RNA sequence: AACGGUCCGCCUCUACCCCCCCGGAGCCGGACCGCUCGACGACCCCCGCUAUCCCCCCCGGCGGGGGUCGUCGCAU
Number, nucleotide and partner (000 for none) at each position: 001a000002a000003c034004g033005g032006u031007c030008c029009g028010c000011c026012u025013c024014u000015a000016c000017c000018c000019c000020c000021c000022c000023g000024g013025a012026g011027c000028c009029g008030g007031a006032c005033c004034g003035c000036u000037c000038g072039a071040c070041g069042a068043c067044c066045c065046c064047c063048g062049c061050u060051a000052u000053c000054c000055c000056c000057c000058c000059c000060g050061g049062c048063g047064g046065g045066g044067g043068u042069c041070g040071u039072c038073g000074c000075a000076u000